RNA sequence: AUGAUAAGGUUGUAUUACAGCCUUUUUGUAGAAGUGAACCUUCUGCUAUAAACCAUCAAAUUGCGGGAACACCCUAAAGCAAUCAUAACCAAGUAAGAGUAGUAAUACAUCUUAUGGCUCAGGCAAUGACUCGAGGUAAGGUAAAAUCAUGAUUGAUGUACAAAAGUUAAAUGGGUUAUCCGCAGCCAAGUGCCAAAAAAAAAUGAGAGCGUACCUUUUGCAUAAUGGAUCAGUUAAUGUUAGAUUCAUUACAAGCUAGGUAAAGUUCUUUAUAAUAAUGGUAUGCAGUUCAUCGACUAAAUGUUGGUUGGCGCAAGCUUAAGAUAUAGUCAGGCCUCAUCUGAAAGGAUGCA
Numbered sequence: 001a002u003g004a005u006a007a008g009g010u011u012g013u014a015u016u017a018c019a020g021c022c023u024u025u026u027u028g029u030a031g032a033a034g035u036g037a038a039c040c041u042u043c044u045g046c047u048a049u050a051a052a053c054c055a056u057c058a059a060a061u062u063g064c065g066g067g068a069a070c071a072c073c074c075u076a077a078a079g080c081a082a083u084c085a086u087a088a089c090c091a092a093g094u095a096a097g098a099g100u101a102g103u104a105a106u107a108c109a110u111c112u113u114a115u116g117g118c119u120c121a122g123g124c125a126a127u128g129a130c131u132c133g134a135g136g137u138a139a140g141g142u143a144a145a146a147u148c149a150u151g152a153u154u155g156a157u158g159u160a161c162a163a164a165a166g167u168u169a170a171a172u173g174g175g176u177u178a179u180c181c182g183c184a185g186c187c188a189a190g191u192g193c194c195a196a197a198a199a200a201a202a203a204u205g206a207g208a209g210c211g212u213a214c215c216u217u218u219u220g221c222a223u224a225a226u227g228g229a230u231c232a233g234u235u236a237a238u239g240u241u242a243g244a245u246u247c248a249u250u251a252c253a254a255g256c257u258a259g260g261u262a263a264a265g266u267u268c269u270u271u272a273u274a275a276u277a278a279u280g281g282u283a284u285g286c287a288g289u290u291c292a293u294c295g296a297c298u299a300a301a302u303g304u305u306g307g308u309u310g311g312c313g314c315a316a317g318c319u320u321a322a323g324a325u326a327u328a329g330u331c332a333g334g335c336c337u338c339a340u341c342u343g344a345a346a347g348g349a350u351g352c353a
Stems, first nucleotide, its partner, number of pairs: 006024008029038001051309005057303002062184006072175003185289002190284006293332001295331005311318002338351005
This 353-nucleotide RNA from Monosporascus sp. MG133 belongs to the Rfam family "Group I catalytic intron". Taxonomically the source falls in Monosporascus (Eukaryota, Ascomycota, Pezizomycotina, leotiomyceta). Rfam describes the family as follows. Group I catalytic introns are large self-splicing ribozymes. They catalyse their own excision from mRNA, tRNA and rRNA precursors in a wide range of organisms. The core secondary structure consists of 9 paired regions (P1-P9). These fold to essentially two domains - the P4-P6 domain (formed from the stacking of P5, P4, P6 and P6a helices) and the P3-P9 domain (formed from the P8, P3, P7 and P9 helices). The secondary structure mark-up for this family represents only this conserved core. Group I catalytic introns often have long ORFs inserted in loop regions. The window size for this search is chosen to minimise search time and catch the small examples. A larger window size will find more matches. A reference for the family is Cate et al. (1996), "Crystal structure of a group I ribozyme domain: principles of RNA packing", Science. The match comes from Rfam's covariance-model search (82 bits).